Background: tRNA: a 71-nucleotide RNA sequence from Rhodanobacter spathiphylli. Rfam classes the family as a transfer RNA. From the family's description: Transfer RNA (tRNA) molecules are approximately 80 nucleotides in length. The base pairs follow the family's consensus structure, which is taken from published work.
[Rfam]
RNA sequence: GCGGGAGUAGUUCAAUGGUAGAACAUCAGUUUUCCAAACUGAUUACGCGGGUUCGAUUCCCGCCUUCCGCU
Numbered sequence: 001g002c003g004g005g006a007g008u009a010g011u012u013c014a015a016u017g018g019u020a021g022a023a024c025a026u027c028a029g030u031u032u033u034c035c036a037a038a039c040u041g042a043u044u045a046c047g048c049g050g051g052u053u054c055g056a057u058u059c060c061c062g063c064c065u066u067c068c069g070c071u
Stems, first nucleotide, its partner, number of pairs: 001070007010024004026042005047063005